[Rfam]
RNA sequence: GGGCGUAUGGCGCAAUUGGCUAGCGCACCUGACUCUUAAUCAGGGGGUUGUGGGUUCGACCCCCACUACGCCCA
Numbered sequence: 001g002g003g004c005g006u007a008u009g010g011c012g013c014a015a016u017u018g019g020c021u022a023g024c025g026c027a028c029c030u031g032a033c034u035c036u037u038a039a040u041c042a043g044g045g046g047g048u049u050g051u052g053g054g055u056u057c058g059a060c061c062c063c064c065a066c067u068a069c070g071c072c073c074a
Stems, first nucleotide, its partner, number of pairs: 001073007010026004028044005050066005